[Rfam]
Nucleotides: 064
Base pairs, nucleotide, nucleotide: 001064002063003062004061005060006059007058008057009056010055011054012053013052016049017048018047019046020045021044022043023042024041025040026039027038028037029036030035
Number, partner (000 for none) and nucleotide at each position: 001064g002063g003062u004061c005060u006059c007058c008057c009056u010055c011054u012053g013052u014000g015000a016049g017048g018047c019046g020045a021044u022043c023042g024041a025040u026039u027038g028037c029036g030035g031000g032000a033000c034000u035030c036029c037028g038027c039026g040025a041024u042023u043022g044021a045020u046019c047018g048017c049016c050000c051000a052013g053012c054011a055010g056009a057008g058007g059006g060005a061004g062003g063002c064001c